RNA: FMN riboswitch aptamer (RFN element)
RNA sequence: AGACGUUCUCGGGGCGAGGCGCAAUUCCCCACCGGCGGUGUUUGACGGGGCCAACGCUCCCGCCAUCAGUCCGCGAGCGCCUGACGGCAUCGGCCGACAGGGACAGCAGACCCGGUGAGACCCCGGGACCGACGGUUACAGUCCGGAUGAUAGAGAACGCAU
Dot-bracket structure: ...(((((((.......((.......))..[[((((((..............................[[))))..((...........................))...(((((.......)))))]])).(((.....]]))).......)))))))...